This 431-nucleotide part of an RNA from Coccomyxa subellipsoidea belongs to the Rfam family "Eukaryotic large subunit ribosomal RNA".
RNA sequence: GGUAGUAGCAAAUAUUCAAAUGAGAACUUUGAAGACUGAAGUGGAGAAAGGUUCCAUGUGAACAGCAAUUGGACAUGGGUUAGUCGAUCCUAAGAGAUGGGGCAACCCUGUAUCAAGAGCGCGAUCCGCGCUGCCCAUCGAAAGGGAAGCCGGUUAAGAUUCCGGCACCUGGACAAGGCGACGACGGUAACGUUAGCGAGCCCGGAGACGCCGGCGGUGACCCCGGGAAGAGUUCUCUUUUCUUUUUAACAGCCCGAAGGCCCUGGAAUCGGAUCAUCCGGAGAUAGGGCUCAGCGGCUGGUAAAGCAGCGCACCUUUGCGCUGUCCGGAGCGCCACCGACGGCCCUUGAAAACCCGGGGGAGCGUUUUCGAUCUUGCCAGGUCGUACUCAUAACCGCAUCAGGUCUCCAAGGUGAACAGCCUCUAGUCGA
Numbered sequence: 001g002g003u004a005g006u007a008g009c010a011a012a013u014a015u016u017c018a019a020a021u022g023a024g025a026a027c028u029u030u031g032a033a034g035a036c037u038g039a040a041g042u043g044g045a046g047a048a049a050g051g052u053u054c055c056a057u058g059u060g061a062a063c064a065g066c067a068a069u070u071g072g073a074c075a076u077g078g079g080u081u082a083g084u085c086g087a088u089c090c091u092a093a094g095a096g097a098u099g100g101g102g103c104a105a106c107c108c109u110g111u112a113u114c115a116a117g118a119g120c121g122c123g124a125u126c127c128g129c130g131c132u133g134c135c136c137a138u139c140g141a142a143a144g145g146g147a148a149g150c151c152g153g154u155u156a157a158g159a160u161u162c163c164g165g166c167a168c169c170u171g172g173a174c175a176a177g178g179c180g181a182c183g184a185c186g187g188u189a190a191c192g193u194u195a196g197c198g199a200g201c202c203c204g205g206a207g208a209c210g211c212c213g214g215c216g217g218u219g220a221c222c223c224c225g226g227g228a229a230g231a232g233u234u235c236u237c238u239u240u241u242c243u244u245u246u247u248a249a250c251a252g253c254c255c256g257a258a259g260g261c262c263c264u265g266g267a268a269u270c271g272g273a274u275c276a277u278c279c280g281g282a283g284a285u286a287g288g289g290c291u292c293a294g295c296g297g298c299u300g301g302u303a304a305a306g307c308a309g310c311g312c313a314c315c316u317u318u319g320c321g322c323u324g325u326c327c328g329g330a331g332c333g334c335c336a337c338c339g340a341c342g343g344c345c346c347u348u349g350a351a352a353a354c355c356c357g358g359g360g361g362a363g364c365g366u367u368u369u370c371g372a373u374c375u376u377g378c379c380a381g382g383u384c385g386u387a388c389u390c391a392u393a394a395c396c397g398c399a400u401c402a403g404g405u406c407u408c409c410a411a412g413g414u415g416a417a418c419a420g421c422c423u424c425u426a427g428u429c430g431a
Stems, first nucleotide, its partner, number of pairs: 015033006034429004043409004049389002054078006063071002085385003089145002094139002097111002100109003119131003149166005169381004174377005179371002183194004201359005210344004215339005221333001223329003226246006250300005260290006269281004307324007395404002411423004